[Rfam]
RNA sequence: UGUUCCAAGGAGCGCUGCAGCAGGCCGGUGGUACCCCCAUCGCAGGCCUGUCAGGCUUGGGGCAGGUCGACGGGCAUGCCGCGCAUGGCCCGCAUCAACGGCGCUCACCUGUU
Numbered sequence: 001u002g003u004u005c006c007a008a009g010g011a012g013c014g015c016u017g018c019a020g021c022a023g024g025c026c027g028g029u030g031g032u033a034c035c036c037c038c039a040u041c042g043c044a045g046g047c048c049u050g051u052c053a054g055g056c057u058u059g060g061g062g063c064a065g066g067u068c069g070a071c072g073g074g075c076a077u078g079c080c081g082c083g084c085a086u087g088g089c090c091c092g093c094a095u096c097a098a099c100g101g102c103g104c105u106c107a108c109c110u111g112u113u
Stems, first nucleotide, its partner, number of pairs: 002063007021050006
RNA: SAH (S-adenosyl-L-homocysteine) riboswitch aptamer